[Rfam]
RNA: mir-7386 microRNA precursor family
Organism: Monodelphis domestica
RNA sequence: CUUGGAUAAAGUGCUUUAUUUUGUAAAUUACACCUAAAUAAGGACUUUAUCCAUGGA
Dot-bracket structure: (.(((((((((.....(((((.(..........).)))))....))))))))).)..